Notes: Eukaryotic large subunit ribosomal RNA: a 295-nucleotide part of an RNA from Angomonas deanei. Lineage of the source: Eukaryota > Metakinetoplastina > Trypanosomatida > Trypanosomatidae > Angomonas.
[Rfam]
RNA sequence: GAGUCAAACAGACGCGCAAGGGAGGAGAUAUGGUUGCCAGUACUUCUCUCGUACUGAAAGGGAGAUGCAAAAUGCAUCUGUGGUGUGCACACGUUAAAAAUGCCCAACACCGACCAGCCCUCCGUGGGUUGCGUUGGAGUGUGCCUGUUUGGACCCGAAAGGUGGUGAACUAUGCCUGAACAAGGUGAAGCCCGGGGAAACCCAGGUGGAGGCCUGUAGCGAUGCUGACGUGCAAAUCGCUCGUAUGAUUUGGGUAUCGGAGCGAAAGACUCAUCGAACCACCUAGUAGCUGGUU
Numbered sequence: 001g002a003g004u005c006a007a008a009c010a011g012a013c014g015c016g017c018a019a020g021g022g023a024g025g026a027g028a029u030a031u032g033g034u035u036g037c038c039a040g041u042a043c044u045u046c047u048c049u050c051g052u053a054c055u056g057a058a059a060g061g062g063a064g065a066u067g068c069a070a071a072a073u074g075c076a077u078c079u080g081u082g083g084u085g086u087g088c089a090c091a092c093g094u095u096a097a098a099a100a101u102g103c104c105c106a107a108c109a110c111c112g113a114c115c116a117g118c119c120c121u122c123c124g125u126g127g128g129u130u131g132c133g134u135u136g137g138a139g140u141g142u143g144c145c146u147g148u149u150u151g152g153a154c155c156c157g158a159a160a161g162g163u164g165g166u167g168a169a170c171u172a173u174g175c176c177u178g179a180a181c182a183a184g185g186u187g188a189a190g191c192c193c194g195g196g197g198a199a200a201c202c203c204a205g206g207u208g209g210a211g212g213c214c215u216g217u218a219g220c221g222a223u224g225c226u227g228a229c230g231u232g233c234a235a236a237u238c239g240c241u242c243g244u245a246u247g248a249u250u251u252g253g254g255u256a257u258c259g260g261a262g263c264g265a266a267a268g269a270c271u272c273a274u275c276g277a278a279c280c281a282c283c284u285a286g287u288a289g290c291u292g293g294u295u
Stems, first nucleotide, its partner, number of pairs: 005151007013143005020050003025045003054061002082111005090102002113134002115131006154293002157290001161283006170259001172257009181247001183215004190207003194203003219244004224240002227238002261271002
The family is grouped with related families in Rfam's "LSU clan".